The family of this 54-nucleotide RNA sequence from Astyanax mexicanus is "UnaL2 LINE 3' element". Gene Ontology term of the family: transposition, RNA-mediated. The family's consensus secondary structure is taken from published work. Taxonomically the source falls in Astyanax (Eukaryota, Deuterostomia, Teleostei, Otomorpha). A reference for the family is Baba et al. (2004), "Solution structure of an RNA stem-loop derived from the 3' conserved region of eel LINE UnaL2", RNA. The family's RNA type in Rfam is cis-regulatory element.
RNA sequence: ACAAAGUACUGUUGUAGGUCGCUCUGGAUAAGGGCGUCUGCUAAAUGCCUUAAA
Numbered sequence: 001a002c003a004a005a006g007u008a009c010u011g012u013u014g015u016a017g018g019u020c021g022c023u024c025u026g027g028a029u030a031a032g033g034g035c036g037u038c039u040g041c042u043a044a045a046u047g048c049c050u051u052a053a054a
Stems, first nucleotide, its partner, number of pairs: 013043001014041003020036006